[Rfam]
RNA sequence: CCACGUCCCGUAGCACUCCCCCCGGUGCCGGGACUUUCCCGAGCCGGACUCGGCGUUCUCCCCCCGGGCGCCGGGUCCGGCUCACCC
Numbered sequence: 001c002c003a004c005g006u007c008c009c010g011u012a013g014c015a016c017u018c019c020c021c022c023c024g025g026u027g028c029c030g031g032g033a034c035u036u037u038c039c040c041g042a043g044c045c046g047g048a049c050u051c052g053g054c055g056u057u058c059u060c061c062c063c064c065c066g067g068g069c070g071c072c073g074g075g076u077c078c079g080g081c082u083c084a085c086c087c
Base pairs, nucleotide, nucleotide: 005034006033007032008031009030010029013026014025041083042082043081044080045079046078047077048076049075050074051073052072053071054070055069056068057067058066